Shown here is a 37-nucleotide sequence from Vibrio aquimaris, a member of the family "JUMPstart RNA".
The match comes from Rfam's covariance-model search (42 bits).
Rfam 15.1 lists 288 matches to the family in 230 species.
The family's RNA type in Rfam is cis-regulatory element.

RNA sequence: AAGCCUUUGGGGGCUGUAACCCAAGGGCGGUAGCGUG
Numbered sequence: 001a002a003g004c005c006u007u008u009g010g011g012g013g014c015u016g017u018a019a020c021c022c023a024a025g026g027g028c029g030g031u032a033g034c035g036u037g
Stems, first nucleotide, its partner, number of pairs: 007024005